[Rfam]
RNA sequence: GACCCUGUGGACAUGCCUUCUCCUCAUUCCUUGUGGAGCAGGAAUAUAUCCAUGACAUGCUACCUUUAAAAAAAGGAGUUUUCAGGGCUGCCAACCUUACAGUACAGGUUGAGUGGUAGUAUAUUUCUCCUACAUUA
Numbered sequence: 001g002a003c004c005c006u007g008u009g010g011a012c013a014u015g016c017c018u019u020c021u022c023c024u025c026a027u028u029c030c031u032u033g034u035g036g037a038g039c040a041g042g043a044a045u046a047u048a049u050c051c052a053u054g055a056c057a058u059g060c061u062a063c064c065u066u067u068a069a070a071a072a073a074a075g076g077a078g079u080u081u082u083c084a085g086g087g088c089u090g091c092c093a094a095c096c097u098u099a100c101a102g103u104a105c106a107g108g109u110u111g112a113g114u115g116g117u118a119g120u121a122u123a124u125u126u127c128u129c130c131u132a133c134a135u136u137a
Stems, first nucleotide, its partner, number of pairs: 004059001006057003016042003020038004075130004087117002091113001092111006

Small nucleolar RNA U109: a 137-nucleotide sequence from Cavia porcellus.
Taxonomically the source falls in Cavia (Eukaryota, Euteleostomi, Tetrapoda, Euarchontoglires).